[Rfam]
Nucleotides: 082
Stems, first nucleotide, its partner, number of pairs: 001082008011027001012025003018068003029054001030048008059074004
Number, partner (000 for none) and nucleotide at each position: 001082u002081u003080a004079u005078u006077u007076u008075g009000a010000g011027g012025g013024g014023g015000a016000a017000a018068g019067g020066u021000u022000c023014c024013c025012c026000a027011c028000g029054c030048g031047c032046u033045u034044a035043c036042c037041c038000c039000u040000u041037g042036g043035g044034u045033a046032a047031g048030u049000u050000a051000c052000c053000a054029g055000a056000g057000a058000u059074c060073a061072g062071g063000a064000u065000u066020a067019c068018c069000g070000c071062c072061c073060u074059g075008c076007a077006a078005a079004a080003u081002a082001a
Shown here is an 82-nucleotide sequence from Bacillus sp. 17376, a member of the family "skipping-rope RNA". NCBI's taxonomy places the organism under Bacteria, Bacillati, Caryophanales, Bacillaceae, Bacillus.